[Rfam]
RNA sequence: GUCGCCGCCGCCUCUGAUUCGCUUGGUGCAGGUCGGGAACGGGCUCGAUUUUUGCCCGACGGUGAGCUGGAUCCCGCCUUGCAUCAACUGAAUCCGAGCCGGAAUGCGA
Numbered sequence: 001g002u003c004g005c006c007g008c009c010g011c012c013u014c015u016g017a018u019u020c021g022c023u024u025g026g027u028g029c030a031g032g033u034c035g036g037g038a039a040c041g042g043g044c045u046c047g048a049u050u051u052u053u054g055c056c057c058g059a060c061g062g063u064g065a066g067c068u069g070g071a072u073c074c075c076g077c078c079u080u081g082c083a084u085c086a087a088c089u090g091a092a093u094c095c096g097a098g099c100c101g102g103a104a105u106g107c108g109a
Base pairs, nucleotide, nucleotide: 013097014096017093018092019091020090023087024086025085026084027083028082029081030080031079032078034076035075036074037073038072040070